[Rfam]
RNA sequence: GAGCUUAUGAUGAUAGAAUAACAUCUUAGCGGAUUUCAAUGAGACCUUAUUGGUCUAUGAUUUCCUCAUUGUUACACACACUGAAGCUU
Numbered sequence: 001g002a003g004c005u006u007a008u009g010a011u012g013a014u015a016g017a018a019u020a021a022c023a024u025c026u027u028a029g030c031g032g033a034u035u036u037c038a039a040u041g042a043g044a045c046c047u048u049a050u051u052g053g054u055c056u057a058u059g060a061u062u063u064c065c066u067c068a069u070u071g072u073u074a075c076a077c078a079c080a081c082u083g084a085a086g087c088u089u
Stems, first nucleotide, its partner, number of pairs: 001089005
Dot-bracket structure: (((((...............................................................................)))))
RNA: Small nucleolar RNA R11/Z151